[Rfam]
The record is a 366-nucleotide part of an RNA from Coprothermobacter proteolyticus, which matches "Bacterial large subunit ribosomal RNA" in Rfam. The sequence is in the family's curated seed alignment.
RNA sequence: CGAGAGAACCCUCGCUAAGGAACUCGGCAAACUGACCCCGUAACCUCGGGAGAAGGGGUGCCUGCGAUAGGUGAAUCAAGAGAUUGAUGAGCCGAGGCAGGCCGCAGAGGAUAGGUCCUGGCGACUGUUUACCAAAAACACAGGUCUCUGCGAAGGCGGAAGCCGAAGUAUAGGGGCUGAGGCCUGGCCAGUGCUGGAAGGUUAAGGUGAGGGGUUAGCCCAGGAAUGGGCGAAGCUCCGAGCUGAAGCCCCAGUAAACGCCGGCCGUAACUAUAACGGUCCUAAGGUAGCGAAAUUCCUUGUCGGGUAAGUUCCGACCCGCAUGAAAGGUGUGACGACUGGGACGCUGUCUCAGCGAGGGACUCG
Numbered sequence: 001c002g003a004g005a006g007a008a009c010c011c012u013c014g015c016u017a018a019g020g021a022a023c024u025c026g027g028c029a030a031a032c033u034g035a036c037c038c039c040g041u042a043a044c045c046u047c048g049g050g051a052g053a054a055g056g057g058g059u060g061c062c063u064g065c066g067a068u069a070g071g072u073g074a075a076u077c078a079a080g081a082g083a084u085u086g087a088u089g090a091g092c093c094g095a096g097g098c099a100g101g102c103c104g105c106a107g108a109g110g111a112u113a114g115g116u117c118c119u120g121g122c123g124a125c126u127g128u129u130u131a132c133c134a135a136a137a138a139c140a141c142a143g144g145u146c147u148c149u150g151c152g153a154a155g156g157c158g159g160a161a162g163c164c165g166a167a168g169u170a171u172a173g174g175g176g177c178u179g180a181g182g183c184c185u186g187g188c189c190a191g192u193g194c195u196g197g198a199a200g201g202u203u204a205a206g207g208u209g210a211g212g213g214g215u216u217a218g219c220c221c222a223g224g225a226a227u228g229g230g231c232g233a234a235g236c237u238c239c240g241a242g243c244u245g246a247a248g249c250c251c252c253a254g255u256a257a258a259c260g261c262c263g264g265c266c267g268u269a270a271c272u273a274u275a276a277c278g279g280u281c282c283u284a285a286g287g288u289a290g291c292g293a294a295a296u297u298c299c300u301u302g303u304c305g306g307g308u309a310a311g312u313u314c315c316g317a318c319c320c321g322c323a324u325g326a327a328a329g330g331u332g333u334g335a336c337g338a339c340u341g342g343g344a345c346g347c348u349g350u351c352u353c354a355g356c357g358a359g360g361g362a363c364u365c366g
Stems, first nucleotide, its partner, number of pairs: 001366004009361008018352003035059005044049001060102006075088005103107001115345007122337002126140003143178008151168001155164003182331003186262003191259002193255005200250003206244002211239005218231005263281006282286001292319001302318006